[Rfam]
RNA sequence: UUGUGAGGUAGAGGUGCGAUAUUUAACAGUCUAUAGUGGAGCUUGAAGGAGCGAUGAAGCAUAGAGAAGGAAAUAUUGCCGAAAUGAAGCUUAUCCUUUAGUAAGCUUUGUUGGGUCUGUGGUGAAUAAUUACAGGACUGUCUUGACAGAUUCCCAAUCUGCCAGGUUGUGCUAUCUCGGAU
Numbered sequence: 001u002u003g004u005g006a007g008g009u010a011g012a013g014g015u016g017c018g019a020u021a022u023u024u025a026a027c028a029g030u031c032u033a034u035a036g037u038g039g040a041g042c043u044u045g046a047a048g049g050a051g052c053g054a055u056g057a058a059g060c061a062u063a064g065a066g067a068a069g070g071a072a073a074u075a076u077u078g079c080c081g082a083a084a085u086g087a088a089g090c091u092u093a094u095c096c097u098u099u100a101g102u103a104a105g106c107u108u109u110g111u112u113g114g115g116u117c118u119g120u121g122g123u124g125a126a127u128a129a130u131u132a133c134a135g136g137a138c139u140g141u142c143u144u145g146a147c148a149g150a151u152u153c154c155c156a157a158u159c160u161g162c163c164a165g166g167u168u169g170u171g172c173u174a175u176c177u178c179g180g181a182u
Base pairs, nucleotide, nucleotide: 006177007176008175009174010173011172016079017078018077019076020075021074022073023072024071030065031064032063033062034061037058083112084111085110086109087108088107089106090105091104092103093102094101113139114138116136117135118134119133120132121131122130123129142166143165144164145163147161148160149159
Background: A member of the RNA family "Lysine riboswitch aptamer" from Isobaculum melis, 182 nucleotides long. It scores 98 bits against the family's covariance model. The source organism's lineage runs through Bacteria, Bacillati, Bacilli, Carnobacteriaceae and Isobaculum. The family has 47 seed sequences and 3,224 matches in Rfam 15.1. Rfam links the family to the GO term lysine biosynthetic process.